[Rfam]
RNA: Glutamine riboswitch aptamer (glnA leader)
Nucleotides: 074
Base pairs, nucleotide, nucleotide: 003070004069005068006067007066009041010040011039012038013037014036015035016034017033018032019031020030021029044071050061051060052059
Number, partner (000 for none) and nucleotide at each position: 001000u002000u003070c004069g005068u006067u007066c008000a009041u010040c011039u012038u013037u014036u015035u016034g017033g018032u019031c020030g021029c022000u023000a024000c025000u026000g027000a028000c029021g030020c031019g032018a033017u034016c035015g036014a037013a038012a039011a040010g041009a042000c043000g044071g045000a046000a047000g048000u049000a050061g051060g052059g053000a054000a055000a056000c057000c058000u059052c060051c061050c062000g063000a064000a065000g066007g067006a068005a069004c070003g071044c072000g073000c074000c